[Rfam]
RNA sequence: UCAUUUUCGUCAGGAGAGAGUCCGCGCGCCGCACCCGGCGCCGGGCCGCCGAAGGCGCAGGCAGCGGCCGAACGCUCAGGCAAAAGGACUGACACCGGCGC
Numbered sequence: 001u002c003a004u005u006u007u008c009g010u011c012a013g014g015a016g017a018g019a020g021u022c023c024g025c026g027c028g029c030c031g032c033a034c035c036c037g038g039c040g041c042c043g044g045g046c047c048g049c050c051g052a053a054g055g056c057g058c059a060g061g062c063a064g065c066g067g068c069c070g071a072a073c074g075c076u077c078a079g080g081c082a083a084a085a086g087g088a089c090u091g092a093c094a095c096c097g098g099c100g101c
Stems, first nucleotide, its partner, number of pairs: 009093005020046004048081003051077002055075003061068002
RNA: Glycine riboswitch aptamer
Organism: Oryzisolibacter propanilivorax